[Rfam]
RNA: DUF805b RNA
RNA sequence: AAGGAAGCAGCCGAAAAUCCUUAAAAGAGUAGGCG
Numbered sequence: 001a002a003g004g005a006a007g008c009a010g011c012c013g014a015a016a017a018u019c020c021u022u023a024a025a026a027g028a029g030u031a032g033g034c035g
Base pairs, nucleotide, nucleotide: 002021003020004019005018010034011033012032